The family of this 134-nucleotide sequence from Sorex araneus is "Small nucleolar RNA SNORA14".
ACA14 is a member of the H/ACA class of snoRNA that guide the sites of modification of uridines to pseudouridines.
Lineage of the source: Eukaryota > Mammalia > Boreoeutheria > Soricinae > Sorex.
The base pairs follow the family's consensus structure, which was predicted with RNAfold.

[Rfam]
RNA sequence: GCGCAUUCUUAAACCCUCUUGGCGGCGCUCCGAUCGCCCCCAGGAUAUGAGUGAAUGCGAUAGAAACCGCAGGGGAGUCCAAAGGGCUGCGCCCCCUCCCCGUGGCGCGGCCUUAUUUCAUACCUGCGACAUCA
Numbered sequence: 001g002c003g004c005a006u007u008c009u010u011a012a013a014c015c016c017u018c019u020u021g022g023c024g025g026c027g028c029u030c031c032g033a034u035c036g037c038c039c040c041c042a043g044g045a046u047a048u049g050a051g052u053g054a055a056u057g058c059g060a061u062a063g064a065a066a067c068c069g070c071a072g073g074g075g076a077g078u079c080c081a082a083a084g085g086g087c088u089g090c091g092c093c094c095c096c097u098c099c100c101c102g103u104g105g106c107g108c109g110g111c112c113u114u115a116u117u118u119c120a121u122a123c124c125u126g127c128g129a130c131a132u133c134a
Stems, first nucleotide, its partner, number of pairs: 003058004008051004017045006024038003063133002068128006083114007091106002095102001